[Rfam]
RNA sequence: UUUAGUUAUGGUGAUAUGGUACCGGAGACAAUAGCUGGCAAAAUAGUUGGUGGUGUUUGUUCAUUGAGUGGUGUCCUUGUGAUCGCCUUACCCGUACCUGUUAUUGUAUCUAAC
Numbered sequence: 001u002u003u004a005g006u007u008a009u010g011g012u013g014a015u016a017u018g019g020u021a022c023c024g025g026a027g028a029c030a031a032u033a034g035c036u037g038g039c040a041a042a043a044u045a046g047u048u049g050g051u052g053g054u055g056u057u058u059g060u061u062c063a064u065u066g067a068g069u070g071g072u073g074u075c076c077u078u079g080u081g082a083u084c085g086c087c088u089u090a091c092c093c094g095u096a097c098c099u100g101u102u103a104u105u106g107u108a109u110c111u112a113a114c
Stems, first nucleotide, its partner, number of pairs: 002113001004111002007108005013102004018097001021095002037077002040074001050062001

Potassium channel RNA editing signal: a 114-nucleotide sequence from Lucilia cuprina.
The literature on the family includes a 2004 paper in Nat Struct Mol Biol by Bhalla et al., "Control of human potassium channel inactivation by editing of a small mRNA hairpin".
The base pairs follow the family's consensus structure, which is taken from published work.
The match comes from Rfam's covariance-model search (83 bits).
By type it is a cis-regulatory element.